Glycine riboswitch aptamer: a 101-nucleotide RNA sequence from Amycolatopsis cihanbeyliensis.
RNA sequence: AGAACCCGCGCGGGAGAGAUCGGGUCGGCAACAGCCGGCUCGGCGCCGAAGGAGCAAAUCCUCCCCGGAACCUCUCAGGCAUCAAGGACCGUGCGGGUGAG
Numbered sequence: 001a002g003a004a005c006c007c008g009c010g011c012g013g014g015a016g017a018g019a020u021c022g023g024g025u026c027g028g029c030a031a032c033a034g035c036c037g038g039c040u041c042g043g044c045g046c047c048g049a050a051g052g053a054g055c056a057a058a059u060c061c062u063c064c065c066c067g068g069a070a071c072c073u074c075u076c077a078g079g080c081a082u083c084a085a086g087g088a089c090c091g092u093g094c095g096g097g098u099g100a101g
Stems, first nucleotide, its partner, number of pairs: 006096008020043009045080003048076002052074003059067001
From the family's description: This family represents the bacterial glycine riboswitch. Glycine riboswitches usually consist of two metabolite-binding aptamers domains with similar structures in tandem. The aptamers cooperatively bind glycine to regulate the expression of downstream genes. In Bacillus subtilis, this riboswitch is found upstream of the gcvT operon which controls glycine degradation. NCBI's taxonomy places the organism under Bacteria, Bacillati, Actinomycetes, Pseudonocardiales, Amycolatopsis.